[Rfam]
RNA sequence: CACUUAUCUAGAGUGGCUGAGGGACUGGCCCAUCGAAGCCCGGCAACCUGCUAAAAGCAAGGUGCCAAUUCCAGCAAAAUGUCCAGCAUUUUGGGAGAUAAGGU
Numbered sequence: 001c002a003c004u005u006a007u008c009u010a011g012a013g014u015g016g017c018u019g020a021g022g023g024a025c026u027g028g029c030c031c032a033u034c035g036a037a038g039c040c041c042g043g044c045a046a047c048c049u050g051c052u053a054a055a056a057g058c059a060a061g062g063u064g065c066c067a068a069u070u071c072c073a074g075c076a077a078a079a080u081g082u083c084c085a086g087c088a089u090u091u092u093g094g095g096a097g098a099u100a101a102g103g104u
Stems, first nucleotide, its partner, number of pairs: 003102006013041001015040003021031003025074004042066004047062002049059003070096001075093006
Dot-bracket structure: ..((((((....(.(((...(((.[[[[)))......))))((((.(((((.....))).))))))...(]]]]((((((.......))))))..)))))))..